[Rfam]
RNA sequence: CAUGUGUGUGUACGCCGAGCUGCGUUAUCUAAACCUUCCAAUAUUGAAGGCAUGAUGCGACAGCCGUGGCAAUUCCGCCACCAGGGUGAGUUUGGAAACGAACUGACCUCCCGAAAUUUGGAAAGGUGUGAACAUGCUCACAGA
Numbered sequence: 001c002a003u004g005u006g007u008g009u010g011u012a013c014g015c016c017g018a019g020c021u022g023c024g025u026u027a028u029c030u031a032a033a034c035c036u037u038c039c040a041a042u043a044u045u046g047a048a049g050g051c052a053u054g055a056u057g058c059g060a061c062a063g064c065c066g067u068g069g070c071a072a073u074u075c076c077g078c079c080a081c082c083a084g085g086g087u088g089a090g091u092u093u094g095g096a097a098a099c100g101a102a103c104u105g106a107c108c109u110c111c112c113g114a115a116a117u118u119u120g121g122a123a124a125g126g127u128g129u130g131a132a133c134a135u136g137c138u139c140a141c142a143g144a
Stems, first nucleotide, its partner, number of pairs: 004137001006135001011130006019064004026057004034050005066081005084109004089104006110121002
About this RNA:
The family of this 144-nucleotide RNA from Aliidiomarina haloalkalitolerans is "Molybdenum/Tungsten riboswitch aptamer (Moco RNA motif)". Gene Ontology terms of the family: regulation of gene expression, tungstate binding and molybdenum ion binding. The match comes from Rfam's covariance-model search (84 bits). NCBI's taxonomy places the organism under Bacteria, Pseudomonadati, Pseudomonadota, Alteromonadales, Aliidiomarina.